[Rfam]
This 77-nucleotide RNA from Manduca sexta belongs to the Rfam family "mir-2756 microRNA precursor family". Rfam links the family to the GO terms miRNA-mediated post-transcriptional gene silencing and RISC complex. The family's consensus secondary structure was predicted with RNAalifold.
RNA sequence: UCGGUUGCACACCCUGUAGCUGCUAAGGGGCGCAGUUUAAUUCCUCCCCUGUGCCGCUACAUUGUAUGUAACCGAUU
Dot-bracket structure: (((((((((.((..((((((.((..(((((.(.((.....)).).)))))..)).))))))..)).)))))))))..
Numbered sequence: 001u002c003g004g005u006u007g008c009a010c011a012c013c014c015u016g017u018a019g020c021u022g023c024u025a026a027g028g029g030g031c032g033c034a035g036u037u038u039a040a041u042u043c044c045u046c047c048c049c050u051g052u053g054c055c056g057c058u059a060c061a062u063u064g065u066a067u068g069u070a071a072c073c074g075a076u077u
Stems, first nucleotide, its partner, number of pairs: 001075009011065002015061006022054002026050005032044001034042002